[Rfam]
A member of the RNA family "Small nucleolar RNA Z159/U59" from Lupinus albus, 86 nucleotides long. NCBI's taxonomy places the organism under Eukaryota, Streptophyta, fabids, Fabales, Lupinus. A reference for the family is Chen et al. (2003), "The high diversity of snoRNAs in plants: identification and comparative study of 120 snoRNA genes from Oryza sativa", Nucleic Acids Res. It scores 61 bits against the family's covariance model. Its Rfam clan is "SNORD59 clan".
RNA sequence: UCCUCCGAGGAUGACCAAAAACUAUACUUUCGUUCUUCUGAGUAUAAUACAUGCGGAUAAAUAUUGGAGUCCUGAACUGAGGAGGC
Numbered sequence: 001u002c003c004u005c006c007g008a009g010g011a012u013g014a015c016c017a018a019a020a021a022c023u024a025u026a027c028u029u030u031c032g033u034u035c036u037u038c039u040g041a042g043u044a045u046a047a048u049a050c051a052u053g054c055g056g057a058u059a060a061a062u063a064u065u066g067g068a069g070u071c072c073u074g075a076a077c078u079g080a081g082g083a084g085g086c
Stems, first nucleotide, its partner, number of pairs: 003084004
Dot-bracket structure: ..((((..........................................................................))))..